[Rfam]
RNA: R2 RNA element
Organism: Drosophila kikkawai
RNA sequence: CGUUAUGGAAGGCGCUAGUUUCAAAAUAUAAGCCUGCUACCUUGGCAUAACAUCUAAAAAGGUACAAACAUCGCAAUAAUGACAACAUAAAAGAAGGAGGGUUUUAGUACGUAGGCGCUGUAGAACGUUCACACGUGGUGACGUUCUGACGAAGCAGUGAAUCGUGCAUGCUAGUAAUAGGUCCGUGGUGGACCGCUAGUAUCUUUAGAAGAUUUCCCCACCUUAGCGAUC
Number, nucleotide and partner (000 for none) at each position: 001c000002g000003u000004u000005a000006u000007g000008g000009a000010a000011g000012g000013c000014g000015c000016u000017a000018g000019u000020u000021u000022c000023a000024a000025a000026a000027u000028a000029u000030a000031a000032g000033c000034c000035u000036g000037c000038u064039a063040c062041c061042u060043u059044g000045g000046c000047a000048u000049a000050a000051c000052a000053u000054c000055u000056a000057a000058a000059a043060a042061g041062g040063u039064a038065c000066a000067a000068a000069c000070a230071u229072c228073g227074c226075a000076a000077u000078a000079a000080u000081g000082a000083c000084a000085a000086c000087a000088u000089a000090a000091a000092a000093g000094a224095a223096g222097g221098a000099g218100g217101g216102u000103u000104u000105u000106a000107g167108u166109a165110c164111g163112u000113a000114g000115g000116c159117g158118c157119u156120g155121u154122a147123g146124a145125a144126c143127g142128u141129u140130c000131a000132c000133a000134c000135g000136u000137g000138g000139u000140g129141a128142c127143g126144u125145u124146c123147u122148g000149a000150c000151g000152a000153a000154g121155c120156a119157g118158u117159g116160a000161a000162u000163c111164g110165u109166g108167c107168a000169u201170g200171c199172u198173a197174g196175u000176a000177a000178u000179a000180g000181g000182u000183c000184c000185g000186u000187g000188g000189u000190g000191g000192a000193c000194c000195g000196c174197u173198a172199g171200u170201a169202u000203c000204u000205u000206u000207a000208g000209a000210a000211g000212a000213u000214u000215u000216c101217c100218c099219c000220a000221c097222c096223u095224u094225a000226g074227c073228g072229a071230u070231c000